[Rfam]
RNA sequence: UGUUCGCCGAGCUGGGAAUUUGUCUUGCAAACGUUUCGUCCCCUGUCUAGGUGACAUCCUCGGUGCUUGGAUGUCACCUAGACAGGGGACGAAACGUUUGCAAGACAAAUUCCCAGCUCGGCGAACA
Numbered sequence: 001u002g003u004u005c006g007c008c009g010a011g012c013u014g015g016g017a018a019u020u021u022g023u024c025u026u027g028c029a030a031a032c033g034u035u036u037c038g039u040c041c042c043c044u045g046u047c048u049a050g051g052u053g054a055c056a057u058c059c060u061c062g063g064u065g066c067u068u069g070g071a072u073g074u075c076a077c078c079u080a081g082a083c084a085g086g087g088g089a090c091g092a093a094a095c096g097u098u099u100g101c102a103a104g105a106c107a108a109a110u111u112c113c114c115a116g117c118u119c120g121g122c123g124a125a126c127a
Stems, first nucleotide, its partner, number of pairs: 001127002004124006011117007019109015034093003039089004044084012057071002
Dot-bracket structure: ((.((((((.(((((((.((((((((((((((((((..((((.((((((((((((.((...........)).)))))))))))).)))).))).))))))))))))))).))))))).)))))).))

MIR7725 microRNA precursor family: a 127-nucleotide RNA from Chiloscyllium punctatum. Rfam links the family to the GO terms miRNA-mediated post-transcriptional gene silencing and RISC complex.